[Rfam]
RNA sequence: GUUCUUGUGGAAAUGUCUCCUCCUUAUUCCUUUAUGAGCAGAAAUGUAUUCAUAACAUGCUACAUUUUAAAAGGAGUUCUCCGAGCUGCCGAUCUUACAGUAGAGGUUGAGUAGUAGCCUACCUAUUUCUCCUACAUAA
Numbered sequence: 001g002u003u004c005u006u007g008u009g010g011a012a013a014u015g016u017c018u019c020c021u022c023c024u025u026a027u028u029c030c031u032u033u034a035u036g037a038g039c040a041g042a043a044a045u046g047u048a049u050u051c052a053u054a055a056c057a058u059g060c061u062a063c064a065u066u067u068u069a070a071a072a073g074g075a076g077u078u079c080u081c082c083g084a085g086c087u088g089c090c091g092a093u094c095u096u097a098c099a100g101u102a103g104a105g106g107u108u109g110a111g112u113a114g115u116a117g118c119c120u121a122c123c124u125a126u127u128u129c130u131c132c133u134a135c136a137u138a139a
Stems, first nucleotide, its partner, number of pairs: 004059001006057003016042003020038003073132004085115002089111001090109007
A member of the RNA family "Small nucleolar RNA U109" from Ailuropoda melanoleuca, 139 nucleotides long. By type it is an H/ACA-box small nucleolar RNA. A reference for the family is Richard et al. (2003), "A common sequence motif determines the Cajal body-specific localization of box H/ACA scaRNAs", EMBO J. Rfam 15.1 lists 1,405 matches to the family in 622 species.